[Rfam]
RNA sequence: AUAUGUCUCUGUUAGGUGAGGCUCCUGUAUAGAGAGACGCUACUGCCCAAAAAUGUCGAGAGACGCCAAUGGGUCAACAGGAAAGGUCGGAAUGAAGGUCUUUUUUAACGUAGCUGGUUUGAACCUAUGCUAUACAGUGCUAAAGCUCAACGAGGGAGAGGUACGA
Numbered sequence: 001a002u003a004u005g006u007c008u009c010u011g012u013u014a015g016g017u018g019a020g021g022c023u024c025c026u027g028u029a030u031a032g033a034g035a036g037a038c039g040c041u042a043c044u045g046c047c048c049a050a051a052a053a054u055g056u057c058g059a060g061a062g063a064c065g066c067c068a069a070u071g072g073g074u075c076a077a078c079a080g081g082a083a084a085g086g087u088c089g090g091a092a093u094g095a096a097g098g099u100c101u102u103u104u105u106u107a108a109c110g111u112a113g114c115u116g117g118u119u120u121g122a123a124c125c126u127a128u129g130c131u132a133u134a135c136a137g138u139g140c141u142a143a144a145g146c147u148c149a150a151c152g153a154g155g156g157a158g159a160g161g162u163a164c165g166a
Base pairs, nucleotide, nucleotide: 005162006161007160008159009158010157011151012150013096015147016146017145020141021140022139025137026136027135028134029133030132031131032130039114040113041112042111043110045074046073047072048071049070054065055064056063057062080105081104082103083102086099087098088097116125117124118123
Dot-bracket structure: ....(((((((([.(((..(((..((((((((......(((((.(((((....((((....))))....))))).....((((..(((.......])))..))))....))))).(((....)))....)))))))).)))...)))..)).....))))))....

M-box riboswitch aptamer (ykoK leader): a 166-nucleotide RNA from Bacillus mycoides. The pairing is the family consensus, mapped onto this sequence. M-box riboswitch, also know as ykoK leader is described as a metaloregulatory RNA that sense divalent metals and function as a genetic control element of genes related to divalent metal transport in bacteria. Rfam 15.1 lists 1,095 matches to the family in 932 species. NCBI's taxonomy places the organism under Bacteria, Bacillati, Bacillota, Caryophanales, Bacillus mycoides.